[Rfam]
RNA sequence: AACAGGUUCCGGGCCCCUCUGGAAGAUGCGUCGGCAUUGCGCGCUUCGAUGUCGGAACCUUGUC
Numbered sequence: 001a002a003c004a005g006g007u008u009c010c011g012g013g014c015c016c017c018u019c020u021g022g023a024a025g026a027u028g029c030g031u032c033g034g035c036a037u038u039g040c041g042c043g044c045u046u047c048g049a050u051g052u053c054g055g056a057a058c059c060u061u062g063u064c
Stems, first nucleotide, its partner, number of pairs: 006058007022047004027041003
terC RNA: a 64-nucleotide RNA sequence from Zavarzinia aquatilis. Lineage of the source: Bacteria > Pseudomonadati > Pseudomonadota > Zavarziniaceae > Zavarzinia.